[Rfam]
RNA sequence: CUGAGAGUAGGAUUAAUGCGUUAAGUGUCAGUGGACGGAAUGUUGCUGCUGGACGAAGAGAUUACUCGCGAUGUUAAUCCGCAUUCGCUCAA
Number, nucleotide and partner (000 for none) at each position: 001c000002u091003g090004a089005g088006a000007g000008u000009a000010g080011g079012a078013u077014u076015a075016a074017u073018g072019c070020g069021u068022u000023a000024a000025g054026u053027g000028u052029c051030a050031g049032u048033g047034g046035a000036c000037g000038g086039a085040a084041u083042g082043u000044u000045g000046c034047u033048g032049c031050u030051g029052g028053a026054c025055g000056a000057a000058g067059a066060g065061a000062u000063u000064a000065c060066u059067c058068g021069c020070g019071a000072u018073g017074u016075u015076a014077a013078u012079c011080c010081g000082c042083a041084u040085u039086c038087g000088c005089u004090c003091a002092a000
This 92-nucleotide RNA from Aerococcus sp. Group 1 belongs to the Rfam family "THF (Tetrahydrofolate) riboswitch aptamer". A reference for the family is Ames et al. (2010), "A eubacterial riboswitch class that senses the coenzyme tetrahydrofolate", Chem Biol.